[Rfam]
RNA sequence: GUUUAGAGGAAUGUUGUUUGGCUCGAGGUCAUGGAGAGUAAUUCGUUAACCCAACUCAAAACUCUAAAUGAUUCUCGGACCAGGCUUCAUUCCCCUCAAC
Numbered sequence: 001g002u003u004u005a006g007a008g009g010a011a012u013g014u015u016g017u018u019u020g021g022c023u024c025g026a027g028g029u030c031a032u033g034g035a036g037a038g039u040a041a042u043u044c045g046u047u048a049a050c051c052c053a054a055c056u057c058a059a060a061a062c063u064c065u066a067a068a069u070g071a072u073u074c075u076c077g078g079a080c081c082a083g084g085c086u087u088c089a090u091u092c093c094c095c096u097c098a099a100c
Stems, first nucleotide, its partner, number of pairs: 001100003005096002008093006016085006024077003